[Rfam]
RNA: Small nucleolar RNA snR191
Organism: Saccharomycodes ludwigii
RNA sequence: UUCCAAGAUAUUUUGUCAGGACGUAUUUGAUCAGUUAUGUGUUUUCUUUUAAUUUUUUAUUUUAUUUUAUUUUCUGUUUUAUUUUAUAUAACAAGAGAUAAAAUAGAAUAAAAGAAAGGAGCAAGGUAACUGUAUAUUUUAUCCACAAAUGGGUCUGUUACAUUCUUGGAAGAUUAACACUGAGCUAAUAUACUAUCUUCUUCUUUCCGGUUUUCGUUUUGAAAACCACUUUUUGAAGAAGGGCGUCGCAAUUAUUCGUCGUUUUGAUGAAUAUAUGGUUGCAAUGUUAUCAUGUUAUUGCUCAGGGAGUAUCUUUUUGAGUUGAGCGGUUUUAAACAUUUUGUUUAUAUUAGAUUAUAUCACUGCUCGUAGUAUAGAAACUCACAAUA
Dot-bracket structure: ..(((((...........((((.(((((.((......................................................................................................))...........))))).))))........)))))..........((((((............((((((((...(((((((.....)))))))........))))))))....((((...(((((((...))))))).......)))).................)))))).((((.(((........(((((.((..(((((.....)))))...........))....)))))......))).))))......
Numbered sequence: 001u002u003c004c005a006a007g008a009u010a011u012u013u014u015g016u017c018a019g020g021a022c023g024u025a026u027u028u029g030a031u032c033a034g035u036u037a038u039g040u041g042u043u044u045u046c047u048u049u050u051a052a053u054u055u056u057u058u059a060u061u062u063u064a065u066u067u068u069a070u071u072u073u074c075u076g077u078u079u080u081a082u083u084u085u086a087u088a089u090a091a092c093a094a095g096a097g098a099u100a101a102a103a104u105a106g107a108a109u110a111a112a113a114g115a116a117a118g119g120a121g122c123a124a125g126g127u128a129a130c131u132g133u134a135u136a137u138u139u140u141a142u143c144c145a146c147a148a149a150u151g152g153g154u155c156u157g158u159u160a161c162a163u164u165c166u167u168g169g170a171a172g173a174u175u176a177a178c179a180c181u182g183a184g185c186u187a188a189u190a191u192a193c194u195a196u197c198u199u200c201u202u203c204u205u206u207c208c209g210g211u212u213u214u215c216g217u218u219u220u221g222a223a224a225a226c227c228a229c230u231u232u233u234u235g236a237a238g239a240a241g242g243g244c245g246u247c248g249c250a251a252u253u254a255u256u257c258g259u260c261g262u263u264u265u266g267a268u269g270a271a272u273a274u275a276u277g278g279u280u281g282c283a284a285u286g287u288u289a290u291c292a293u294g295u296u297a298u299u300g301c302u303c304a305g306g307g308a309g310u311a312u313c314u315u316u317u318u319g320a321g322u323u324g325a326g327c328g329g330u331u332u333u334a335a336a337c338a339u340u341u342u343g344u345u346u347a348u349a350u351u352a353g354a355u356u357a358u359a360u361c362a363c364u365g366c367u368c369g370u371a372g373u374a375u376a377g378a379a380a381c382u383c384a385c386a387a388u389a
Stems, first nucleotide, its partner, number of pairs: 003169005019156004024151005030135002180305006198243008209227007248282004255271007307383004312378003323369005329360002333347005